RNA sequence: CCUUUGGAGAGCUAAAAUCACUAAAGUAGCUUAAGCGAAAUAGAGUUCAAUGAAGAAGGAA
Numbered sequence: 001c002c003u004u005u006g007g008a009g010a011g012c013u014a015a016a017a018u019c020a021c022u023a024a025a026g027u028a029g030c031u032u033a034a035g036c037g038a039a040a041u042a043g044a045g046u047u048c049a050a051u052g053a054a055g056a057a058g059g060a061a
Stems, first nucleotide, its partner, number of pairs: 001059005009048005021043003029036002